[Rfam]
RNA sequence: UUUGCACGGGCAAGUCUCUUACGACCAGCUCCUGCUGAACUCCCCCAGGUGCGGAAGCAAGCAAGGGUAGGCGGUUGUAGCGGUGCGAUAAGGGUCGCUUGCCCCUUU
Numbered sequence: 001u002u003u004g005c006a007c008g009g010g011c012a013a014g015u016c017u018c019u020u021a022c023g024a025c026c027a028g029c030u031c032c033u034g035c036u037g038a039a040c041u042c043c044c045c046c047a048g049g050u051g052c053g054g055a056a057g058c059a060a061g062c063a064a065g066g067g068u069a070g071g072c073g074g075u076u077g078u079a080g081c082g083g084u085g086c087g088a089u090a091a092g093g094g095u096c097g098c099u100u101g102c103c104c105c106u107u108u
Stems, first nucleotide, its partner, number of pairs: 008104008017093005022087002024084002